[Rfam]
RNA sequence: UUAUAAAAUAAACGAAUUGCCUAUAUAAUGCCAUGAUAAGGAUGGCGAGUUUCUACCCAGCACCGUAAAUGCUGGACUAUAAGCGAAUUGAGUCGAUGG
Numbered sequence: 001u002u003a004u005a006a007a008a009u010a011a012a013c014g015a016a017u018u019g020c021c022u023a024u025a026u027a028a029u030g031c032c033a034u035g036a037u038a039a040g041g042a043u044g045g046c047g048a049g050u051u052u053c054u055a056c057c058c059a060g061c062a063c064c065g066u067a068a069a070u071g072c073u074g075g076a077c078u079a080u081a082a083g084c085g086a087a088u089u090g091a092g093u094c095g096a097u098g099g
Stems, first nucleotide, its partner, number of pairs: 018085003022081004029047006057075006
The family of this 99-nucleotide sequence from Lactiplantibacillus kimchii is "Purine riboswitch aptamer". The base pairs follow the family's consensus structure, which is taken from published work. A search with the family's covariance model found it, with a score of 73 bits.